The family of this 121-nucleotide sequence from Idiomarina tyrosinivorans is "Bacterial antisense RNA HPnc0260". A search with the family's covariance model found it, with a score of 62 bits. Lineage of the source: Bacteria > Pseudomonadati > Alteromonadales > Idiomarinaceae > Idiomarina.
[Rfam]
RNA sequence: AGCAAUUAUAGUGACAUUUGUUAACUAUGGUUUUUUUUAAUUUCGAGAAAAAACAAAAGGAAAGGAUAAAAACAGGAGAAAGUGGUGCGUCCGAGUAGACUCGAACUACCGACCUCUGCCA
Numbered sequence: 001a002g003c004a005a006u007u008a009u010a011g012u013g014a015c016a017u018u019u020g021u022u023a024a025c026u027a028u029g030g031u032u033u034u035u036u037u038u039a040a041u042u043u044c045g046a047g048a049a050a051a052a053a054c055a056a057a058a059g060g061a062a063a064g065g066a067u068a069a070a071a072a073c074a075g076g077a078g079a080a081a082g083u084g085g086u087g088c089g090u091c092c093g094a095g096u097a098g099a100c101u102c103g104a105a106c107u108a109c110c111g112a113c114c115u116c117u118g119c120c121a
Stems, first nucleotide, its partner, number of pairs: 001026002007020002010017001041051003083118003087114001092111002095109004